[Rfam]
RNA sequence: UGAGUCGGCAGGGCGGCCGCGGCAGGAGACUGUCGAGGAAAGUCCGGACUCCACAGGGCAGGGUGGUUGUUAACGGCAACCAGGGGCGACCCUCGGGACAGUGCCACAGAAAACAGACCGCCUCGGCGAAAGCCGCGGUAAGGGUGAAACGGUGGUGUAAGAGACCACCAGCGCCCCAGGUGACUGGGGCGGCUAGGUAAACCCCACCCGGAGCAAGGCCAAGAGGGCACCGGAUCGCAAGUGAAGGUGCUGCGCGAGCGUUCGAGGGCUGCCCGUCCGAUGCUCGCGGGUAGGCCGCUAGAGCCUGUCGGCAACGGCAGGCCCAGAUGGAUGGCCGCCGACUGGGACCUCGGUCCCAUGAACAGGAUCCGGCUUACAUGCCGGCUCAUCCG
Numbered sequence: 001u002g003a004g005u006c007g008g009c010a011g012g013g014c015g016g017c018c019g020c021g022g023c024a025g026g027a028g029a030c031u032g033u034c035g036a037g038g039a040a041a042g043u044c045c046g047g048a049c050u051c052c053a054c055a056g057g058g059c060a061g062g063g064u065g066g067u068u069g070u071u072a073a074c075g076g077c078a079a080c081c082a083g084g085g086g087c088g089a090c091c092c093u094c095g096g097g098a099c100a101g102u103g104c105c106a107c108a109g110a111a112a113a114c115a116g117a118c119c120g121c122c123u124c125g126g127c128g129a130a131a132g133c134c135g136c137g138g139u140a141a142g143g144g145u146g147a148a149a150c151g152g153u154g155g156u157g158u159a160a161g162a163g164a165c166c167a168c169c170a171g172c173g174c175c176c177c178a179g180g181u182g183a184c185u186g187g188g189g190c191g192g193c194u195a196g197g198u199a200a201a202c203c204c205c206a207c208c209c210g211g212a213g214c215a216a217g218g219c220c221a222a223g224a225g226g227g228c229a230c231c232g233g234a235u236c237g238c239a240a241g242u243g244a245a246g247g248u249g250c251u252g253c254g255c256g257a258g259c260g261u262u263c264g265a266g267g268g269c270u271g272c273c274c275g276u277c278c279g280a281u282g283c284u285c286g287c288g289g290g291u292a293g294g295c296c297g298c299u300a301g302a303g304c305c306u307g308u309c310g311g312c313a314a315c316g317g318c319a320g321g322c323c324c325a326g327a328u329g330g331a332u333g334g335c336c337g338c339c340g341a342c343u344g345g346g347a348c349c350u351c352g353g354u355c356c357c358a359u360g361a362a363c364a365g366g367a368u369c370c371g372g373c374u375u376a377c378a379u380g381c382c383g384g385c386u387c388a389u390c391c392g
Base pairs, nucleotide, nucleotide: 001388002387003386004385005384006383007382008381009380010379011377012339013338014337015336016335017334018333020035021034022033023032024031025030040375041374042373044372045371046370047369048368049213050212051211052210056274057273058272059271061209062208063207064206065205066080067079068078069077070076081095082093083092084091085090096204097203101202102201103198104197105196118143119142120139121138122137124135125134126133127132151169152168153167154166155165156164171193172191173190174189175188176187177186178185179184217296218295219294220293254287255286256285257284258283259282266278267277268276269275303322304321305320306319307318308317309316310315
Shown here is a 392-nucleotide RNA sequence from Lentzea albidocapillata, a member of the family "Bacterial RNase P class A". Gene Ontology terms of the family: tRNA processing, dimeric ribonuclease P complex and ribonuclease P activity. Pairs were carried over by alignment from the consensus structure, which is taken from published work.